[Rfam]
Nucleotides: 144
Base pairs, nucleotide, nucleotide: 002143003142004141005140010132011131012130013129018124019122020121021120025054026053028052029051030050031049032048033047034046038138039137040136041135042134058119059118060117061116062115063114
Number, partner (000 for none) and nucleotide at each position: 001000a002143a003142c004141a005140g006000a007000g008000u009000a010132g011131g012130c013129a014000u015000g016000a017000u018124g019122c020121g021120u022000u023000a024000a025054g026053u027000g028052u029051u030050c031049g032048c033047a034046a035000a036000u037000g038138g039137g040136a041135g042134g043000u044000c045000g046034u047033u048032g049031c050030g051029a052028a053026a054025c055000g056000a057000a058119g059118u060117g061116g062115u063114u064000a065000a066000u067000a068000a069000g070000u071000u072000c073000u074000u075000u076000g077000c078000a079000u080000g081000u082000g083000u084000u085000g086000g087000u088000u089000u090000a091000a092000u093000a094000a095000a096000a097000g098000c099000a100000a101000c102000a103000c104000a105000u106000g107000g108000g109000a110000a111000g112000g113000c114063a115062a116061c117060u118059g119058c120021g121020c122019g123000u124018u125000u126000g127000a128000u129013u130012g131011u132010c133000g134042c135041u136040u137039c138038c139000g140005c141004u142003g143002u144000g

A member of the RNA family "THF (Tetrahydrofolate) riboswitch aptamer" from Granulicatella sp. WM01, 144 nucleotides long. The literature on the family includes a 2010 paper in Chem Biol by Ames et al., "A eubacterial riboswitch class that senses the coenzyme tetrahydrofolate". Taxonomically the source falls in Granulicatella (Bacteria, Bacillati, Bacilli, Carnobacteriaceae). The match comes from Rfam's covariance-model search (50 bits).